[Rfam]
RNA sequence: GUCAGAGUAGCUACCAAGCGUAAAGUGUUAUACCAUGGGAUGUCGGGUAUAGACGAACACAAUCGUGGCGGUGAGGUAGUGCGUCCGCUGAA
Dot-bracket structure: .((((....((((((..((((...((.(((((((...[[[[[...)))))))))...(((....)))))).)..)))))).]]]]].)))).
Numbered sequence: 001g002u003c004a005g006a007g008u009a010g011c012u013a014c015c016a017a018g019c020g021u022a023a024a025g026u027g028u029u030a031u032a033c034c035a036u037g038g039g040a041u042g043u044c045g046g047g048u049a050u051a052g053a054c055g056a057a058c059a060c061a062a063u064c065g066u067g068g069c070g071g072u073g074a075g076g077u078a079g080u081g082c083g084u085c086c087g088c089u090g091a092a
Stems, first nucleotide, its partner, number of pairs: 002091004010080006018072001019070003025054002028052007038086005058067003

Rfam assigns this 92-nucleotide RNA sequence from Candidatus Izimoplasma sp. ZiA1 to the family "THF (Tetrahydrofolate) riboswitch aptamer".
Lineage of the source: Bacteria > Mollicutes > Candidatus Izemoplasmatales > Candidatus Izemoplasmataceae > Candidatus Izemoplasma.
About the family: Tetrahydrofolate (THF) riboswitch was first reported for Ames et al. as an RNA motif in 5' untranslated (5'-UTR)regions of folate transport and biosynthesis genes in Firmicutes genomes.
For this family Rfam cites "A eubacterial riboswitch class that senses the coenzyme tetrahydrofolate" (Ames et al., Chem Biol, 2010).